[Rfam]
RNA sequence: GCGGUACCGGUUCCCGCCUCGCGUUCUUCAGCACCCGUGAAACGUGCCCCUCAUGGUGUGCCGAGGCGACCCGGCGACC
Numbered sequence: 001g002c003g004g005u006a007c008c009g010g011u012u013c014c015c016g017c018c019u020c021g022c023g024u025u026c027u028u029c030a031g032c033a034c035c036c037g038u039g040a041a042a043c044g045u046g047c048c049c050c051u052c053a054u055g056g057u058g059u060g061c062c063g064a065g066g067c068g069a070c071c072c073g074g075c076g077a078c079c
Stems, first nucleotide, its partner, number of pairs: 003079003007074004015068007022060003
This 79-nucleotide RNA sequence from Bailinhaonella thermotolerans belongs to the Rfam family "L31-Actinobacteria ribosomal protein leader". NCBI's taxonomy places the organism under Bacteria, Bacillati, Actinomycetes, Streptosporangiales, Bailinhaonella. By type it is a cis-regulatory leader.